[Rfam]
Annotation
The record is a 64-nucleotide sequence from Escherichia coli, which matches "rdlD antitoxin" in Rfam. Its family is annotated with mRNA binding and negative regulation of translation in the Gene Ontology. The literature on the family includes a 2002 paper in Mol Microbiol by Kawano et al., "Molecular characterization of long direct repeat (LDR) sequences expressing a stable mRNA encoding for a 35-amino-acid cell-killing peptide and a cis-encoded small antisense RNA in Escherichia coli". The source organism's lineage runs through Bacteria, Pseudomonadati, Enterobacterales, Enterobacteriaceae and Escherichia coli O157:H7. Pairs were carried over by alignment from the consensus structure.
RNA sequence: GUCUAGGUUCAAGAUUAGCCCCCGUGGUGUUGUCAGGUGCAUACCUGCAACGUGCGGGGGUUUU
Numbered sequence: 001g002u003c004u005a006g007g008u009u010c011a012a013g014a015u016u017a018g019c020c021c022c023c024g025u026g027g028u029g030u031u032g033u034c035a036g037g038u039g040c041a042u043a044c045c046u047g048c049a050a051c052g053u054g055c056g057g058g059g060g061u062u063u064u
Stems, first nucleotide, its partner, number of pairs: 017062009028052005036044001